Shown here is a 94-nucleotide sequence from Branchiostoma lanceolatum, a member of the family "mir-2060 microRNA precursor family".
The match comes from Rfam's covariance-model search (79 bits).
Its family is annotated with RISC complex and miRNA-mediated post-transcriptional gene silencing in the Gene Ontology.
[Rfam]
RNA sequence: GCUUAUCUGUGUGUGGAUUGUGUUCAGCACCAGGGACAGGAGUGCUUACCUUUGUGUGGAUGGUGUUUAGCACCUGGGACAGGCGUGUUUAGCU
Numbered sequence: 001g002c003u004u005a006u007c008u009g010u011g012u013g014u015g016g017a018u019u020g021u022g023u024u025c026a027g028c029a030c031c032a033g034g035g036a037c038a039g040g041a042g043u044g045c046u047u048a049c050c051u052u053u054g055u056g057u058g059g060a061u062g063g064u065g066u067u068u069a070g071c072a073c074c075u076g077g078g079a080c081a082g083g084c085g086u087g088u089u090u091a092g093c094u
Base pairs, nucleotide, nucleotide: 004085006083007082008081009080010079020073021072022071023070024069026067027066028065029064030063031062032061034055036053038051039050040049042047
Dot-bracket structure: ...(.(((((.........(((((.(((((((.(.(.(((.(....).))).).).....))))))).))))).....))))).).........